[Rfam]
RNA sequence: UAGCCCUUUAAUUACAGUCCCGUGAGGCUGAGAAGGAACUUAGGAUACGUACAGAUAUUAAUCUGUUAAUUUACGUAUGCUUAUAAACCUCUCAUCUUCGGUGAGAGGUUUAUUCUUUAU
Numbered sequence: 001u002a003g004c005c006c007u008u009u010a011a012u013u014a015c016a017g018u019c020c021c022g023u024g025a026g027g028c029u030g031a032g033a034a035g036g037a038a039c040u041u042a043g044g045a046u047a048c049g050u051a052c053a054g055a056u057a058u059u060a061a062u063c064u065g066u067u068a069a070u071u072u073a074c075g076u077a078u079g080c081u082u083a084u085a086a087a088c089c090u091c092u093c094a095u096c097u098u099c100g101g102u103g104a105g106a107g108g109u110u111u112a113u114u115c116u117u118u119a120u
Stems, first nucleotide, its partner, number of pairs: 005036005015030005043074001045072001047070001051066006083113012